[Rfam]
RNA sequence: UGAUGAGGUAGAGGUCGCGGAUGUAAUCAGUACACUGGAGGAGACGACAAGAGCCGUCUGAGAUUCCAGUAGAAAGGUACACCCGCCGAAGUAUGCGGAGCCGACUCUUUGUAAAUACUCCGUAUGCUGGGGCUGCUAACCGAAAGGAGCAGAACUGUCACGCGAUGUCCUAACACAGACACGUGUGUUGAGCUAUCUUGUUA
Number, nucleotide and partner (000 for none) at each position: 001u000002g000003a000004u000005g000006a198007g197008g196009u195010a194011g193012a000013g000014g000015u000016c000017g086018c085019g084020g083021a000022u081023g080024u079025a078026a000027u000028c000029a000030g000031u000032a000033c000034a070035c069036u068037g067038g066039a065040g064041g000042a000043g000044a000045c000046g000047a000048c000049a000050a000051g000052a000053g000054c000055c000056g000057u000058c000059u000060g000061a000062g000063a000064u040065u039066c038067c037068a036069g035070u034071a000072g000073a000074a000075a000076g000077g000078u025079a024080c023081a022082c000083c020084c019085g018086c017087c000088g000089a000090a128091g127092u126093a125094u124095g123096c122097g121098g120099a119100g118101c000102c000103g000104a000105c000106u000107c000108u000109u000110u000111g000112u000113a000114a000115a000116u000117a000118c100119u099120c098121c097122g096123u095124a094125u093126g092127c091128u090129g156130g155131g000132g000133c152134u151135g150136c149137u148138a000139a000140c000141c000142g000143a000144a000145a000146g000147g000148a137149g136150c135151a134152g133153a000154a000155c130156u129157g000158u000159c187160a186161c185162g184163c183164g182165a000166u000167g000168u000169c000170c000171u000172a000173a000174c000175a000176c000177a000178g000179a000180c000181a000182c164183g163184u162185g161186u160187g159188u000189u000190g000191a000192g000193c011194u010195a009196u008197c007198u006199u000200g000201u000202u000203a000